c-di-AMP riboswitch aptamer (ydaO/yuaA leader): a 134-nucleotide RNA sequence from Leptolyngbya sp. NIES-3755. The source organism's lineage runs through Bacteria, Bacillati, Cyanophyceae, Leptolyngbyaceae and Leptolyngbya. The base pairs follow the family's consensus structure. The match comes from Rfam's covariance-model search (78 bits).
[Rfam]
RNA sequence: AUCUGUGGGUCGCCUAAUCUAAAUCGAAAUAGAGCGGAGGAACCAAUUUUUGGGGCGAAUCUUAGACAUCGGUUUGAGAAAGACACCUUCCAGUCUUAGCCCGUCAGCUAACUCCGUCGGCAAUGGGAGGAUAG
Numbered sequence: 001a002u003c004u005g006u007g008g009g010u011c012g013c014c015u016a017a018u019c020u021a022a023a024u025c026g027a028a029a030u031a032g033a034g035c036g037g038a039g040g041a042a043c044c045a046a047u048u049u050u051u052g053g054g055g056c057g058a059a060u061c062u063u064a065g066a067c068a069u070c071g072g073u074u075u076g077a078g079a080a081a082g083a084c085a086c087c088u089u090c091c092a093g094u095c096u097u098a099g100c101c102c103g104u105c106a107g108c109u110a111a112c113u114c115c116g117u118c119g120g121c122a123a124u125g126g127g128a129g130g131a132u133a134g
Stems, first nucleotide, its partner, number of pairs: 012121003018033003034117006044052002053102003061078004081096004